[Rfam]
RNA: t44 RNA
Organism: Enterovibrio coralii
Nucleotides: 088
Base pairs, nucleotide, nucleotide: 023078024077025076026075027074028073029072030071035069036068037067038066039065040063041062042061043060048059049058050057051056
Number, partner (000 for none) and nucleotide at each position: 001000a002000a003000u004000a005000c006000u007000a008000u009000u010000u011000a012000u013000u014000u015000a016000a017000c018000u019000c020000a021000c022000a023078c024077a025076c026075a027074u028073a029072u030071c031000g032000a033000c034000a035069c036068a037067u038066g039065c040063g041062c042061c043060g044000g045000g046000g047000u048059g049058c050057c051056c052000u053000u054000a055000a056051g057050g058049g059048u060043c061042g062041g063040c064000a065039g066038u067037a068036u069035g070000g071030g072029a073028u074027a075026u076025g077024u078023g079000g080000a081000g082000g083000c084000c085000u086000a087000a088000c